[Rfam]
RNA sequence: UUCUUAUCAAGAGUGGCUGAGGGACUGGCCCUAUGAUGCCCGGCAACCUUUAACAUAUAUCGUUAAAAGGUGCUAAUUCCAGUUAAGAUGAGAG
Numbered sequence: 001u002u003c004u005u006a007u008c009a010a011g012a013g014u015g016g017c018u019g020a021g022g023g024a025c026u027g028g029c030c031c032u033a034u035g036a037u038g039c040c041c042g043g044c045a046a047c048c049u050u051u052a053a054c055a056u057a058u059a060u061c062g063u064u065a066a067a068a069g070g071u072g073c074u075a076a077u078u079c080c081a082g083u084u085a086a087g088a089u090g091a092g093a094g
Base pairs, nucleotide, nucleotide: 001094002093003092004091005090006089007088008087013041015040016039017038021031022030023029025082026081027080028079042074043073044072045071047070048069049066050065052063078086
RNA: SAM riboswitch aptamer (S box leader)